[Rfam]
RNA sequence: ACGCCGAUGUGUACUAUGGCUUUUUAUUCCUAUGUGAUGAUGAAAUGUUCGUGUAGGGAUAGAAGCCGUUUUACACGUGGUGA
Numbered sequence: 001a002c003g004c005c006g007a008u009g010u011g012u013a014c015u016a017u018g019g020c021u022u023u024u025u026a027u028u029c030c031u032a033u034g035u036g037a038u039g040a041u042g043a044a045a046u047g048u049u050c051g052u053g054u055a056g057g058g059a060u061a062g063a064a065g066c067c068g069u070u071u072u073a074c075a076c077g078u079g080g081u082g083a
Stems, first nucleotide, its partner, number of pairs: 002082005008077006016069008026060012
mir-135 microRNA precursor family: an 83-nucleotide sequence from Cottoperca gobio. The family's consensus secondary structure was predicted with PFOLD. Rfam 15.1 lists 2,125 matches to the family in 647 species. Its family is annotated with RISC complex and gene silencing by miRNA in the Gene Ontology. On this family, see Lagos-Quintana et al., Curr Biol 2002: "Identification of tissue-specific microRNAs from mouse". The source organism's lineage runs through Eukaryota, Craniata, Euacanthomorphacea, Eupercaria and Cottoperca.